RNA sequence: GGUCCCCUGAUGCUUACCACAGGCUGUGUUCUUACACUGACUGUAUAGCAAGAGGAGGCAGAGUAAGUCUACCCCAUGUAUACCUCAGCCCAGUGCCUGGUCUGCAUUGUGAAUGGGGAAAUAUGG
Number, nucleotide and partner (000 for none) at each position: 001g000002g059003u058004c057005c000006c055007c054008u053009g000010a000011u000012g000013c000014u000015u000016a000017c000018c000019a000020c043021a042022g041023g000024c000025u000026g037027u036028g035029u034030u000031c000032u000033u000034a029035c028036a027037c026038u000039g000040a000041c022042u021043g020044u000045a000046u000047a000048g000049c000050a000051a000052g000053a008054g007055g006056a000057g004058g003059c002060a000061g000062a000063g000064u000065a000066a000067g000068u000069c000070u000071a000072c118073c117074c116075c115076a114077u113078g000079u000080a000081u000082a000083c000084c000085u000086c104087a103088g102089c000090c100091c099092a098093g097094u000095g000096c000097c093098u092099g091100g090101u000102c088103u087104g086105c000106a000107u000108u000109g000110u000111g000112a000113a077114u076115g075116g074117g073118g072119a000120a000121a000122u000123a000124u000125g000126g000